[Rfam]
RNA sequence: ACACGAGAAGGGAGGUGGUCCUGAGUUGAUUUCUCAUAGGACGCGUGAGGUGGCUGCGCGCUAGCGCACUUCUCUUGCCGAGACUGCGCAGAGGCGCAAUCCCAGCAGCCCACCGCAGUCCGCGGGCCGUGCCGGUCGUCCCCGGUAUGCGGCGCCAUCCCGGCGCCAGGCCCGCGGGCUGUUCUUG
Numbered sequence: 001a002c003a004c005g006a007g008a009a010g011g012g013a014g015g016u017g018g019u020c021c022u023g024a025g026u027u028g029a030u031u032u033c034u035c036a037u038a039g040g041a042c043g044c045g046u047g048a049g050g051u052g053g054c055u056g057c058g059c060g061c062u063a064g065c066g067c068a069c070u071u072c073u074c075u076u077g078c079c080g081a082g083a084c085u086g087c088g089c090a091g092a093g094g095c096g097c098a099a100u101c102c103c104a105g106c107a108g109c110c111c112a113c114c115g116c117a118g119u120c121c122g123c124g125g126g127c128c129g130u131g132c133c134g135g136u137c138g139u140c141c142c143c144g145g146u147a148u149g150c151g152g153c154g155c156c157a158u159c160c161c162g163g164c165g166c167c168a169g170g171c172c173c174g175c176g177g178g179c180u181g182u183u184c185u186u187g
Base pairs, nucleotide, nucleotide: 015057016056017055018054019053059096060095061094062093064089065088066087067086116181117180118179119178120177121176122175123174124173125172126171127170128169130147131146132145133144134143135142

A member of the RNA family "Actinobacteria sRNA Ms_IGR-5" from Nostocoides australiense, 187 nucleotides long. The match comes from Rfam's covariance-model search (80 bits). The literature on the family includes a 2013 paper in RNA by Li et al., "Identification of small RNAs in Mycobacterium smegmatis using heterologous Hfq". By type it is a small RNA.